[Rfam]
c-di-AMP riboswitch aptamer (ydaO/yuaA leader): a 200-nucleotide sequence from a Frankiales bacterium.

RNA sequence: GUGGCCACUUCGUCGUAGCCGGGGCAGGAGCGGGGGACCCACACGUCCCACCGUCCGCAGCGCGUCUGCGGACUCGGGGUGAAGCCGUACGCCUGCUGGACCAGGCGCCCGGCCGGGCAAUCCCUCAGGCCCGAGCGCUUGCGCUCGGUGGCCGAGCCCGAACCCGACAGCUCACCUCGCAGGCGAGAGGGAAGGACCGA
Numbered sequence: 001g002u003g004g005c006c007a008c009u010u011c012g013u014c015g016u017a018g019c020c021g022g023g024g025c026a027g028g029a030g031c032g033g034g035g036g037a038c039c040c041a042c043a044c045g046u047c048c049c050a051c052c053g054u055c056c057g058c059a060g061c062g063c064g065u066c067u068g069c070g071g072a073c074u075c076g077g078g079g080u081g082a083a084g085c086c087g088u089a090c091g092c093c094u095g096c097u098g099g100a101c102c103a104g105g106c107g108c109c110c111g112g113c114c115g116g117g118c119a120a121u122c123c124c125u126c127a128g129g130c131c132c133g134a135g136c137g138c139u140u141g142c143g144c145u146c147g148g149u150g151g152c153c154g155a156g157c158c159c160g161a162a163c164c165c166g167a168c169a170g171c172u173c174a175c176c177u178c179g180c181a182g183g184c185g186a187g188a189g190g191g192a193a194g195g196a197c198c199g200a
Stems, first nucleotide, its partner, number of pairs: 011185004019028002030180006040076001077165003085112003115159004